[Rfam]
RNA sequence: UGGUUUCCUGCUUCAACUGUGCUUGGACGGAACGG
Numbered sequence: 001u002g003g004u005u006u007c008c009u010g011c012u013u014c015a016a017c018u019g020u021g022c023u024u025g026g027a028c029g030g031a032a033c034g035g
Base pairs, nucleotide, nucleotide: 001035003033004032005031007030008029010028012027013026014025015024016023017021
Notes
The record is a 35-nucleotide RNA from Lipotes vexillifer, which matches "Iron response element I" in Rfam. Rfam classes the family as a cis-regulatory element. Taxonomically the source falls in Lipotes (Eukaryota, Eumetazoa, Sarcopterygii, Artiodactyla). The family has 62 seed sequences and 6,829 matches in Rfam 15.1.